Rfam assigns this 100-nucleotide RNA sequence from Musa acuminata to the family "Small nucleolar RNA Z103". Rfam 15.1 lists 2,844 matches to the family in 233 species. Its family is annotated with RNA processing and nucleolus in the Gene Ontology.

[Rfam]
RNA sequence: GGCGAGAUGAUGAUCCUUUCCCCAGAUGAUCGACUAUGAACAUACUGUGCGCUAUUGUUUUCUCCUUCAAGGAGAAGAUCAAGCCAGGUUUCUGAUCUCC
Numbered sequence: 001g002g003c004g005a006g007a008u009g010a011u012g013a014u015c016c017u018u019u020c021c022c023c024a025g026a027u028g029a030u031c032g033a034c035u036a037u038g039a040a041c042a043u044a045c046u047g048u049g050c051g052c053u054a055u056u057g058u059u060u061u062c063u064c065c066u067u068c069a070a071g072g073a074g075a076a077g078a079u080c081a082a083g084c085c086a087g088g089u090u091u092c093u094g095a096u097c098u099c100c
Base pairs, nucleotide, nucleotide: 001100002099004097005096